[Rfam]
RNA sequence: GCGUGGGUCGGCCCGCUGUGCAGGUUUCAGCGGGCUGGGGGAUACCGCCGCCCCAUCCCCGCGGGCGGCGGAACCGGUCCGGGGGGCGAGCAGCGCCUCCCGGACUGCG
Numbered sequence: 001g002c003g004u005g006g007g008u009c010g011g012c013c014c015g016c017u018g019u020g021c022a023g024g025u026u027u028c029a030g031c032g033g034g035c036u037g038g039g040g041g042a043u044a045c046c047g048c049c050g051c052c053c054c055a056u057c058c059c060c061g062c063g064g065g066c067g068g069c070g071g072a073a074c075c076g077g078u079c080c081g082g083g084g085g086g087c088g089a090g091c092a093g094c095g096c097c098u099c100c101c102g103g104a105c106u107g108c109g
Stems, first nucleotide, its partner, number of pairs: 001108002006075002008072001009037010038043001045071009054061001076106013
Shown here is a 109-nucleotide sequence from Streptomyces tsukubensis, a member of the family "Streptomyces RNA 4115".
It scores 95 bits against the family's covariance model.
Rfam's curators write: Identified by deep sequencing of transcriptome at the end of exponential growth phase.
Taxonomically the source falls in Streptomyces (Bacteria, Bacillati, Kitasatosporales, Streptomycetaceae).
On this family, see Vockenhuber et al., RNA Biol 2011: "Deep sequencing-based identification of small non-coding RNAs in Streptomyces coelicolor".
The base pairs follow the family's consensus structure.